[Rfam]
RNA sequence: CCACAACACACGGGAGUCCGGUGAGCCGGGCUGAGAGGAAGCGAACCACGCUUCGACCGUCGAACCUGAUCUGGGUCAUGCCAGCGCAGGGAGGAGAAGAACAGAUGUC
Numbered sequence: 001c002c003a004c005a006a007c008a009c010a011c012g013g014g015a016g017u018c019c020g021g022u023g024a025g026c027c028g029g030g031c032u033g034a035g036a037g038g039a040a041g042c043g044a045a046c047c048a049c050g051c052u053u054c055g056a057c058c059g060u061c062g063a064a065c066c067u068g069a070u071c072u073g074g075g076u077c078a079u080g081c082c083a084g085c086g087c088a089g090g091g092a093g094g095a096g097a098a099g100a101a102c103a104g105a106u107g108u109c
Stems, first nucleotide, its partner, number of pairs: 007096001009094001011059003016031005038054005065090004071084004
The family of this 109-nucleotide sequence from Frigoribacterium sp. RIT-PI-h is "TPP riboswitch aptamer (THI element)". Lineage of the source: Bacteria > Actinomycetota > Micrococcales > Microbacteriaceae > Frigoribacterium.